[Rfam]
RNA sequence: CCGCGGGCCGUGUCAACCGGGCGUGACGGUACGGUGAACAGGAAGUCUUUUUCCCGGUUUCUCUUCCUGGCCAACGAAACGGCAGACGAGCGCCUUGUUCCGUCCGGCCC
Numbered sequence: 001c002c003g004c005g006g007g008c009c010g011u012g013u014c015a016a017c018c019g020g021g022c023g024u025g026a027c028g029g030u031a032c033g034g035u036g037a038a039c040a041g042g043a044a045g046u047c048u049u050u051u052u053c054c055c056g057g058u059u060u061c062u063c064u065u066c067c068u069g070g071c072c073a074a075c076g077a078a079a080c081g082g083c084a085g086a087c088g089a090g091c092g093c094c095u096u097g098u099u100c101c102g103u104c105c106g107g108c109c110c
Stems, first nucleotide, its partner, number of pairs: 006109004011023004025104005033094004039069007070083003

Rfam assigns this 110-nucleotide RNA sequence from Mesorhizobium hungaricum to the family "Rhizobiales sRNA Atu_At1". The family's consensus secondary structure was predicted with CMfinder. NCBI's taxonomy places the organism under Bacteria, Pseudomonadota, Alphaproteobacteria, Hyphomicrobiales, Mesorhizobium. The family's RNA type in Rfam is small RNA.